[Rfam]
RNA sequence: UAAAUUUUUAAAUUUUAUGAUAUAAUCGGGUUUUUAAUUUCACCAAUCAGGAGGUCAUAAUGGCUUUGGAUUCGGCUAAAAAAGCAGAAAUUGUUGCGAAAUUCGCUAGAAAAGAG
Numbered sequence: 001u002a003a004a005u006u007u008u009u010a011a012a013u014u015u016u017a018u019g020a021u022a023u024a025a026u027c028g029g030g031u032u033u034u035u036a037a038u039u040u041c042a043c044c045a046a047u048c049a050g051g052a053g054g055u056c057a058u059a060a061u062g063g064c065u066u067u068g069g070a071u072u073c074g075g076c077u078a079a080a081a082a083a084g085c086a087g088a089a090a091u092u093g094u095u096g097c098g099a100a101a102u103u104c105g106c107u108a109g110a111a112a113a114g115a116g
Stems, first nucleotide, its partner, number of pairs: 008025003012021001047070002050067004
Dot-bracket structure: .......(((.(........).))).....................((.((((..........)))).))..............................................
Ribosomal S15 leader: a 116-nucleotide RNA sequence. The E. coli Ribosomal S15 gene 5' UTR can form two alternative structures. One that is a series of three hairpins, The other includes a pseudoknot. The family's RNA type in Rfam is cis-regulatory leader. The match comes from Rfam's covariance-model search (41 bits).